[Rfam]
RNA sequence: GCACCUGAGUCUUUCCCAUUCCCUGCUGCUCUGUGCUGGUGUGGGGACGGAUGGUGCCACAGCGUGGGCAGAGGAAAUCCAGACGGGCUGUUUUCCAUUCACCUUGGAGCCUGUCUCUACAGCUCUGCUACAUUU
Numbered sequence: 001g002c003a004c005c006u007g008a009g010u011c012u013u014u015c016c017c018a019u020u021c022c023c024u025g026c027u028g029c030u031c032u033g034u035g036c037u038g039g040u041g042u043g044g045g046g047a048c049g050g051a052u053g054g055u056g057c058c059a060c061a062g063c064g065u066g067g068g069c070a071g072a073g074g075a076a077a078u079c080c081a082g083a084c085g086g087g088c089u090g091u092u093u094u095c096c097a098u099u100c101a102c103c104u105u106g107g108a109g110c111c112u113g114u115c116u117c118u119a120c121a122g123c124u125c126u127g128c129u130a131c132a133u134u135u
Base pairs, nucleotide, nucleotide: 001057002056003055004054005053013047014046015045016044017043018042019041021039022038068128069127070126071125072124073123081116082115083114084113085112086111087110088109095107096106097105
Record summary
Small nucleolar RNA SNORA55: a 135-nucleotide RNA from Oryctolagus cuniculus. Taxonomically the source falls in Oryctolagus (Eukaryota, Opisthokonta, Metazoa, Eutheria). Its family is annotated with nucleolus and RNA processing in the Gene Ontology. ACA55 is a member of the H/ACA class of snoRNA that guide the sites of modification of uridines to pseudouridines. It is annotated as an H/ACA-box small nucleolar RNA.